[Rfam]
RNA sequence: UGUGGUGUCAGGACUUAGCCCGCAUGUGAACAACGUGUGCUGACCUGUUCACAGUGGUUAAGUUCUGCCCCCCCG
Numbered sequence: 001u002g003u004g005g006u007g008u009c010a011g012g013a014c015u016u017a018g019c020c021c022g023c024a025u026g027u028g029a030a031c032a033a034c035g036u037g038u039g040c041u042g043a044c045c046u047g048u049u050c051a052c053a054g055u056g057g058u059u060a061a062g063u064u065c066u067g068c069c070c071c072c073c074c075g
Base pairs, nucleotide, nucleotide: 011065012064013063014062015061016060017059018058019057020056026052027051028050029049030048031047032046
The record is a 75-nucleotide RNA sequence from Synaphobranchus kaupii, which matches "mir-27 microRNA precursor family" in Rfam. Its family is annotated with miRNA-mediated post-transcriptional gene silencing and RISC complex in the Gene Ontology. The family's consensus secondary structure was predicted with RNAalifold. On this family, see Yao et al., J Virol 2008: "MicroRNA profile of Marek's disease virus-transformed T-cell line MSB-1: predominance of virus-encoded microRNAs". Taxonomically the source falls in Synaphobranchus (Eukaryota, Deuterostomia, Gnathostomata, Elopomorpha).